[Rfam]
RNA: Nitrogen stress-induced RNA 1
Organism: Leptolyngbya sp. FACHB-16
RNA sequence: UGGUAGAUGCACCCUGAUUAAACCCCUGGCUCUCGGGCCGGGGCGUUUUCUU
Numbered sequence: 001u002g003g004u005a006g007a008u009g010c011a012c013c014c015u016g017a018u019u020a021a022a023c024c025c026c027u028g029g030c031u032c033u034c035g036g037g038c039c040g041g042g043g044c045g046u047u048u049u050c051u052u
Stems, first nucleotide, its partner, number of pairs: 002013003024043008